[Rfam]
RNA sequence: ACCCCGAGUCCCCGUUACAGCCCCCAGUGAACUCUCGGUGUUUUCCUUAUAUGAUCAGGCCCUAUUGCUGGCGUCGCCGCUAGUCCAGAGCCUGAGAUUAUGAAAAUGUGUCUGGCGAAGUGGGGCUGGGGACUGGGGC
Numbered sequence: 001a002c003c004c005c006g007a008g009u010c011c012c013c014g015u016u017a018c019a020g021c022c023c024c025c026a027g028u029g030a031a032c033u034c035u036c037g038g039u040g041u042u043u044u045c046c047u048u049a050u051a052u053g054a055u056c057a058g059g060c061c062c063u064a065u066u067g068c069u070g071g072c073g074u075c076g077c078c079g080c081u082a083g084u085c086c087a088g089a090g091c092c093u094g095a096g097a098u099u100a101u102g103a104a105a106a107u108g109u110g111u112c113u114g115g116c117g118a119a120g121u122g123g124g125g126c127u128g129g130g131g132a133c134u135g136g137g138g139c
Stems, first nucleotide, its partner, number of pairs: 002138002005136001007134007020126005055095006062088002067084007
RNA: small Cajal body-specific RNA 17
Organism: Suricata suricatta